[Rfam]
RNA sequence: GAAAGCCUUGUCUCAAUGUCCAGGCAGACUGCGUGCUUGCACGUAAGACUACCUGGACAUUAGAGACGCUAACCCGUAUGAGCACGGAGGGCGAUAGCUCGGAAUGCGAAUACGGGUGAGAAUUGCGGGAGUGCGGAACAAUUCUCAUGGCUUUC
Numbered sequence: 001g002a003a004a005g006c007c008u009u010g011u012c013u014c015a016a017u018g019u020c021c022a023g024g025c026a027g028a029c030u031g032c033g034u035g036c037u038u039g040c041a042c043g044u045a046a047g048a049c050u051a052c053c054u055g056g057a058c059a060u061u062a063g064a065g066a067c068g069c070u071a072a073c074c075c076g077u078a079u080g081a082g083c084a085c086g087g088a089g090g091g092c093g094a095u096a097g098c099u100c101g102g103a104a105u106g107c108g109a110a111u112a113c114g115g116g117u118g119a120g121a122a123u124u125g126c127g128g129g130a131g132u133g134c135g136g137a138a139c140a141a142u143u144c145u146c147a148u149g150g151c152u153u154u155c
Stems, first nucleotide, its partner, number of pairs: 001155007009068004015061010026050002029047002031044005072117008082107003089100004120144006
Description: The family of this 155-nucleotide RNA from Lachnoclostridium sp. An14 is "Clostridiales-1 RNA". NCBI's taxonomy places the organism under Bacteria, Bacillati, Clostridia, Lachnospiraceae, Lachnoclostridium.